A member of the RNA family "Small nucleolar RNA SNORD30" from Dicentrarchus labrax, 69 nucleotides long.
Pairs were carried over by alignment from the consensus structure.
It is annotated as a C/D-box small nucleolar RNA.
On this family, see Tycowski et al., Nature 1996: "A mammalian gene with introns instead of exons generating stable RNA products".
Clan: SNORD30 clan.
Lineage of the source: Eukaryota > Eumetazoa > Teleostei > Osteoglossocephalai > Dicentrarchus.
Its family is annotated with nucleolus and RNA processing in the Gene Ontology.
RNA sequence: GAAAAUGAUGAGAUAACUUGGAAUCUCGUUCGUCUGAACUGCUGUUGAGAAAUAUAAUAUCUGAUAUCA
Numbered sequence: 001g002a003a004a005a006u007g008a009u010g011a012g013a014u015a016a017c018u019u020g021g022a023a024u025c026u027c028g029u030u031c032g033u034c035u036g037a038a039c040u041g042c043u044g045u046u047g048a049g050a051a052a053u054a055u056a057a058u059a060u061c062u063g064a065u066a067u068c069a
Base pairs, nucleotide, nucleotide: 024050025049026048027047028046031044032043034041